[Rfam]
RNA: RT-14 RNA
RNA sequence: CUCUAAUAUUAUUUUCGAUGUUCAAGUUUAUGGACUUGUUCCAAUAAAGUAUUAGAUAUUAAAGAGGUUUAUUCCUUCCGCAAAAGGUAAAAAAAGAUUAGGUUUUAGUAUAACCCAGUAAGAAAUGAAAGGCAUACUAAAAU
Numbered sequence: 001c002u003c004u005a006a007u008a009u010u011a012u013u014u015u016c017g018a019u020g021u022u023c024a025a026g027u028u029u030a031u032g033g034a035c036u037u038g039u040u041c042c043a044a045u046a047a048a049g050u051a052u053u054a055g056a057u058a059u060u061a062a063a064g065a066g067g068u069u070u071a072u073u074c075c076u077u078c079c080g081c082a083a084a085a086g087g088u089a090a091a092a093a094a095a096g097a098u099u100a101g102g103u104u105u106u107a108g109u110a111u112a113a114c115c116c117a118g119u120a121a122g123a124a125a126u127g128a129a130a131g132g133c134a135u136a137c138u139a140a141a142a143u
Stems, first nucleotide, its partner, number of pairs: 003055007013047002020041001023038006078087002103142008114132002121126001